The family of this 98-nucleotide sequence is "PhotoRC-II RNA". The family's RNA type in Rfam is cis-regulatory element.
RNA sequence: AAACCGACACAUUUGACCCCUUCAACCGAGACCUAUAGGGUCAUUAAACUACGUCUCUAAUACCUCUACCUGAGGGUGGUAGAGGAAUACUAACUUCA
Numbered sequence: 001a002a003a004c005c006g007a008c009a010c011a012u013u014u015g016a017c018c019c020c021u022u023c024a025a026c027c028g029a030g031a032c033c034u035a036u037a038g039g040g041u042c043a044u045u046a047a048a049c050u051a052c053g054u055c056u057c058u059a060a061u062a063c064c065u066c067u068a069c070c071u072g073a074g075g076g077u078g079g080u081a082g083a084g085g086a087a088u089a090c091u092a093a094c095u096u097c098a
Stems, first nucleotide, its partner, number of pairs: 014043005020038002028057005064084007